[Rfam]
Small nucleolar RNA Z112: a 189-nucleotide sequence from Panicum hallii.
Rfam classes the family as a C/D-box small nucleolar RNA.
A search with the family's covariance model found it, with a score of 183 bits.
Its family is annotated with nucleolus and RNA processing in the Gene Ontology.
The source organism's lineage runs through Eukaryota, Streptophytina, Mesangiospermae, commelinids and Panicum hallii.
The literature on the family includes a 2002 paper in Nucleic Acids Res by Liang et al., "A novel gene organization: intronic snoRNA gene clusters from Oryza sativa".

RNA sequence: GUCCCUGUGACGAUCUCAAGACCUACCGAUAGGAAGUGCCGUUUGAAACUUUAAACAGCAGCUGCUUCUUUCAGCUGCAGGUGUCCAUCCUUCUACCAUAACCUUUGUGGUUUGGUCCUGGAUGGAGCUCCCAUCUGCAGCUGUUUGAUUCAGCUGUGGUGUGUGAUUUAAAUCGUGUCUCAUAGGGAU
Numbered sequence: 001g002u003c004c005c006u007g008u009g010a011c012g013a014u015c016u017c018a019a020g021a022c023c024u025a026c027c028g029a030u031a032g033g034a035a036g037u038g039c040c041g042u043u044u045g046a047a048a049c050u051u052u053a054a055a056c057a058g059c060a061g062c063u064g065c066u067u068c069u070u071u072c073a074g075c076u077g078c079a080g081g082u083g084u085c086c087a088u089c090c091u092u093c094u095a096c097c098a099u100a101a102c103c104u105u106u107g108u109g110g111u112u113u114g115g116u117c118c119u120g121g122a123u124g125g126a127g128c129u130c131c132c133a134u135c136u137g138c139a140g141c142u143g144u145u146u147g148a149u150u151c152a153g154c155u156g157u158g159g160u161g162u163g164u165g166a167u168u169u170a171a172a173u174c175g176u177g178u179c180u181c182a183u184a185g186g187g188a189u
Stems, first nucleotide, its partner, number of pairs: 001189005075140009084126007095116004100112004